[Rfam]
RNA sequence: UAAUGAAGGAAGCAAGGUAGUAAGCACAGAAACUGAAUCGGGUGCUUAGGUUCGUUCUCUCUGAUGCCUUCCAGCUUUGAUUUGGGGGCAUAGUUCCCCAGCAUACCA
Numbered sequence: 001u002a003a004u005g006a007a008g009g010a011a012g013c014a015a016g017g018u019a020g021u022a023a024g025c026a027c028a029g030a031a032a033c034u035g036a037a038u039c040g041g042g043u044g045c046u047u048a049g050g051u052u053c054g055u056u057c058u059c060u061c062u063g064a065u066g067c068c069u070u071c072c073a074g075c076u077u078u079g080a081u082u083u084g085g086g087g088g089c090a091u092a093g094u095u096c097c098c099c100a101g102c103a104u105a106c107c108a
Stems, first nucleotide, its partner, number of pairs: 012025002040091001042089002050081003054075003
Record summary: Small nucleolar RNA snoR100: a 108-nucleotide sequence from Rhododendron simsii. The source organism's lineage runs through Eukaryota, Streptophytina, Spermatophyta, Ericales and Rhododendron. It is annotated as an H/ACA-box small nucleolar RNA.